[Rfam]
RNA sequence: UCGGCUCCGGUUCACCUCGCGAUGACGGUCGACGAGGACCCGGCGGCC
Numbered sequence: 001u002c003g004g005c006u007c008c009g010g011u012u013c014a015c016c017u018c019g020c021g022a023u024g025a026c027g028g029u030c031g032a033c034g035a036g037g038a039c040c041c042g043g044c045g046g047c048c
Stems, first nucleotide, its partner, number of pairs: 003048003007043004015037005020031003